[Rfam]
RNA sequence: CACCGGGCUGACGCCCGGUGCUAUCGACUGGGCGCCGCUUCGCGGCU
Numbered sequence: 001c002a003c004c005g006g007g008c009u010g011a012c013g014c015c016c017g018g019u020g021c022u023a024u025c026g027a028c029u030g031g032g033c034g035c036c037g038c039u040u041c042g043c044g045g046c047u
Base pairs, nucleotide, nucleotide: 001020002019003018004017005016006015007014008013034046035045036044037043038042
RNA: Acido-Lenti-1 RNA